The record is a 152-nucleotide RNA sequence from Ureibacillus sinduriensis, which matches "c-di-AMP riboswitch aptamer (ydaO/yuaA leader)" in Rfam. A reference for the family is Barrick et al. (2004), "New RNA motifs suggest an expanded scope for riboswitches in bacterial genetic control", Proc Natl Acad Sci U S A.
[Rfam]
RNA sequence: AGUAAUUUUCCGCUUAAUCCGUUUUAGGAGCGGGGGACCCAAAUUUAUUAUACGGAUAUUUCCGUUAUGGGUGAAUUCUGAAACAGAAGGGGCUUAAUGUUUCCGAAGUCCCAACCCGAAAGCUAACCUCGUAAGCGUUUAAAGGAAGCGAU
Numbered sequence: 001a002g003u004a005a006u007u008u009u010c011c012g013c014u015u016a017a018u019c020c021g022u023u024u025u026a027g028g029a030g031c032g033g034g035g036g037a038c039c040c041a042a043a044u045u046u047a048u049u050a051u052a053c054g055g056a057u058a059u060u061u062c063c064g065u066u067a068u069g070g071g072u073g074a075a076u077u078c079u080g081a082a083a084c085a086g087a088a089g090g091g092g093c094u095u096a097a098u099g100u101u102u103c104c105g106a107a108g109u110c111c112c113a114a115c116c117c118g119a120a121a122g123c124u125a126a127c128c129u130c131g132u133a134a135g136c137g138u139u140u141a142a143a144g145g146a147a148g149c150g151a152u
Stems, first nucleotide, its partner, number of pairs: 011137004018029003030132006069117003077087004090111006
Dot-bracket structure: ..........((((...(((......)))((((((.................................(((.....((((...))))..((((((..........))))))...))).........)))))).))))...............